This 136-nucleotide RNA sequence from Actinomadura madurae belongs to the Rfam family "c-di-AMP riboswitch aptamer (ydaO/yuaA leader)". Taxonomically the source falls in Actinomadura (Bacteria, Actinomycetota, Actinomycetes, Streptosporangiales). A search with the family's covariance model found it, with a score of 97 bits. Rfam describes the family as follows. This family represents a conserved RNA structure found upstream of the ydaO and yuaA genes in Bacillus subtilis and related genes in other bacteria.

RNA sequence: GCGGCCGGGACGCCGAAUCUCCCGGCACGGGAGAACCGGGGACCCAGGUCCCUGGGGUGAAUCGACGCACGCGUCGUAGGGCGACUCCUGGCCCGAACCCGUCAGCUAACCCGGUAGGCGUACGAGGAGAGGAGAA
Number, nucleotide and partner (000 for none) at each position: 001g000002c000003g000004g000005c000006c000007g000008g000009g000010a000011c120012g119013c118014c117015g000016a000017a000018u034019c033020u032021c031022c030023c029024g028025g000026c000027a000028c024029g023030g022031g021032a020033g019034a018035a115036c114037c113038g112039g111040g110041g000042a000043c000044c000045c054046a053047g000048g000049u000050c000051c000052c000053u046054g045055g100056g099057g098058u000059g000060a000061a000062u000063c076064g075065a074066c073067g000068c000069a000070c000071g000072c000073g066074u065075c064076g063077u000078a000079g094080g093081g092082c091083g000084a000085c000086u000087c000088c000089u000090g000091g082092c081093c080094c079095g000096a000097a000098c057099c056100c055101g000102u000103c000104a000105g000106c000107u000108a000109a000110c040111c039112c038113g037114g036115u035116a000117g014118g013119c012120g011121u000122a000123c000124g000125a000126g000127g000128a000129g000130a000131g000132g000133a000134g000135a000136a000